[Rfam]
Shown here is a 185-nucleotide RNA sequence from Sulfobacillus acidophilus, a member of the family "6S / SsrS RNA". The source organism's lineage runs through Bacteria, Bacillati, Eubacteriales, Sulfobacillus and Sulfobacillus acidophilus. It scores 73 bits against the family's covariance model.

RNA sequence: GCAUUCCUGCCGUGUGCGAGGCCGGACCGAUAUGUUUUGAGCCAACACCAAAACAUAGGGAACCUGAUCUUAGUUAACGGCCGUCCUGCCCCAGCUUUUUAGGGGACUGCGAAAGUUAACGGGAGGUGCCCACCUGCCUAGCGCAGGUUCAAAACGUCGGGGUACUGCGGCAUGGCGGGGGAAAG
Numbered sequence: 001g002c003a004u005u006c007c008u009g010c011c012g013u014g015u016g017c018g019a020g021g022c023c024g025g026a027c028c029g030a031u032a033u034g035u036u037u038u039g040a041g042c043c044a045a046c047a048c049c050a051a052a053a054c055a056u057a058g059g060g061a062a063c064c065u066g067a068u069c070u071u072a073g074u075u076a077a078c079g080g081c082c083g084u085c086c087u088g089c090c091c092c093a094g095c096u097u098u099u100u101a102g103g104g105g106a107c108u109g110c111g112a113a114a115g116u117u118a119a120c121g122g123g124a125g126g127u128g129c130c131c132a133c134c135u136g137c138c139u140a141g142c143g144c145a146g147g148u149u150c151a152a153a154a155c156g157u158c159g160g161g162g163u164a165c166u167g168c169g170g171c172a173u174g175g176c177g178g179g180g181g182a183a184a185g
Stems, first nucleotide, its partner, number of pairs: 004181012017169002033156004038151006058131003062127004069121001073120006085109001090105003